[Rfam]
RNA sequence: GUGUUUUAUCCUUCAUUCCACCGGAGUCUGUCUUGUGUUUUGAAUCAGAUUUCAGUGGCGUGAAGUGUAAAAGACC
Numbered sequence: 001g002u003g004u005u006u007u008a009u010c011c012u013u014c015a016u017u018c019c020a021c022c023g024g025a026g027u028c029u030g031u032c033u034u035g036u037g038u039u040u041u042g043a044a045u046c047a048g049a050u051u052u053c054a055g056u057g058g059c060g061u062g063a064a065g066u067g068u069a070a071a072a073g074a075c076c
Stems, first nucleotide, its partner, number of pairs: 011065006019057003023053004028048003
RNA: mir-205 microRNA precursor family
Organism: Neogobius melanostomus